[Rfam]
RNA sequence: GGGAGGCGUCGCGACUGGCGUUGAGGUGGGACGACCACCAGGGAGCGACGUGGAGUAGCCAGACCGCGGGACCGUUCGCCUGGGCCCUGGGU
Numbered sequence: 001g002g003g004a005g006g007c008g009u010c011g012c013g014a015c016u017g018g019c020g021u022u023g024a025g026g027u028g029g030g031a032c033g034a035c036c037a038c039c040a041g042g043g044a045g046c047g048a049c050g051u052g053g054a055g056u057a058g059c060c061a062g063a064c065c066g067c068g069g070g071a072c073c074g075u076u077c078g079c080c081u082g083g084g085c086c087c088u089g090g091g092u
Base pairs, nucleotide, nucleotide: 006051007050008049009048010047011046012045015042016041017080018079019078020077026038027037028036029035069087070086072084073083
RNA: ZMP/ZTP riboswitch aptamer (pfl RNA motif)